[Rfam]
RNA sequence: CAGAAAUGGGAGUUCUUUGCAGCCCAAAGCUUCCAAGCACAAGUUGCUUUGGUUUUGGACUGAAGGGAGCUCCUACUUCUU
Numbered sequence: 001c002a003g004a005a006a007u008g009g010g011a012g013u014u015c016u017u018u019g020c021a022g023c024c025c026a027a028a029g030c031u032u033c034c035a036a037g038c039a040c041a042a043g044u045u046g047c048u049u050u051g052g053u054u055u056u057g058g059a060c061u062g063a064a065g066g067g068a069g070c071u072c073c074u075a076c077u078u079c080u081u
Stems, first nucleotide, its partner, number of pairs: 007075012021061002024058005
The family of this 81-nucleotide RNA from Phaseolus vulgaris is "MIR319 microRNA precursor family".
Gene Ontology terms of the family: RISC complex and miRNA-mediated post-transcriptional gene silencing.
The family has 11 seed sequences and 168 matches in Rfam 15.1.
A search with the family's covariance model found it, with a score of 74 bits.
The base pairs follow the family's consensus structure, which was predicted with RNAalifold.